[Rfam]
RNA sequence: UGAUGCCCUUCCACAACUGUCGAAGAUCCCCCAGUGGGUGAAGGGGUGACAGGGAUC
Numbered sequence: 001u002g003a004u005g006c007c008c009u010u011c012c013a014c015a016a017c018u019g020u021c022g023a024a025g026a027u028c029c030c031c032c033a034g035u036g037g038g039u040g041a042a043g044g045g046g047u048g049a050c051a052g053g054g055a056u057c
Stems, first nucleotide, its partner, number of pairs: 006045006014037001016035003025057006